Selenocysteine insertion sequence 1: a 66-nucleotide RNA from Pogona vitticeps.
RNA sequence: GUUUGAAUUUAUGAAGACAGAAGCAAAAACUAUAACCUAGGGGCUUCUGUUGGAUUUAUAGCAACC
Numbered sequence: 001g002u003u004u005g006a007a008u009u010u011a012u013g014a015a016g017a018c019a020g021a022a023g024c025a026a027a028a029a030c031u032a033u034a035a036c037c038u039a040g041g042g043g044c045u046u047c048u049g050u051u052g053g054a055u056u057u058a059u060a061g062c063a064a065c066c
Stems, first nucleotide, its partner, number of pairs: 001066001003064003016051009030040003
The source organism's lineage runs through Eukaryota, Euteleostomi, Sauropsida, Squamata and Pogona. By type it is a cis-regulatory element. The base pairs follow the family's consensus structure, which is taken from published work. It scores 36 bits against the family's covariance model.